[Rfam]
Nucleotides: 079
Base pairs, nucleotide, nucleotide: 003052005050006049007048008047009046010045011044012043015040016039017067018066019065020064025036026035027034028033058072059071060070
Number, partner (000 for none) and nucleotide at each position: 001000u002000g003052u004000g005050g006049u007048a008047u009046g010045c011044g012043u013000g014000a015040c016039u017067g018066g019065c020064g021000g022000a023000a024000c025036g026035u027034g028033g029000g030000u031000a032000a033028c034027c035026a036025c037000g038000a039016g040015g041000a042000a043012g044011c045010g046009u047008a048007u049006a050005u051000g052003g053000a054000a055000a056000a057000c058072g059071c060070c061000g062000u063000a064020c065019g066018c067017c068000u069000g070060g071059g072058c073000a074000a075000a076000g077000u078000a079000u